This 191-nucleotide RNA from Lactococcus hircilactis belongs to the Rfam family "6S / SsrS RNA".
Nucleotides: 191
Stems, first nucleotide, its partner, number of pairs: 002189009012176004017172002031156002035153003038149002061130002064127004069122001076119005087109002092103004
Number, partner (000 for none) and nucleotide at each position: 001000a002189a003188a004187g005186c006185a007184c008183u009182g010181g011000a012176a013175u014174g015173u016000g017172c018171g019000a020000g021000c022000u023000u024000a025000c026000u027000c028000u029000u030000u031156u032155a033000a034000u035153u036152g037151a038149c039148c040000g041000a042000c043000u044000a045000u046000u047000u048000u049000u050000u051000g052000u053000a054000u055000u056000g057000c058000a059000u060000a061130g062129g063000g064127g065126u066125u067124c068000a069122u070000g071000a072000g073000a074000c075000a076119u077118u078117c079116u080115g081000a082000g083000g084000c085000a086000u087109g088108c089000a090000u091000a092103c093102c094101u095100u096000u097000u098000u099000a100095a101094g102093g103092g104000a105000g106000u107000a108088g109087c110000c111000u112000a113000u114000a115080c116079a117078g118077a119076a120000g121000c122069g123000a124067g125066a126065a127064c128000a129062c130061c131000c132000a133000c134000c135000u136000g137000g138000c139000u140000u141000u142000u143000g144000a145000g146000c147000g148039g149038g150000u151037u152036c153035a154000a155032u156031a157000c158000g159000u160000g161000a162000g163000u164000g165000a166000g167000u168000a169000a170000a171018c172017g173015g174014c175013a176012u177000u178000c179000a180000a181010u182009c183008a184007g185006u186005g187004u188003u189002u190000u191000u
Background:
Pairs were carried over by alignment from the consensus structure, which is taken from published work. Taxonomically the source falls in Lactococcus (Bacteria, Bacillota, Bacilli, Lactobacillales).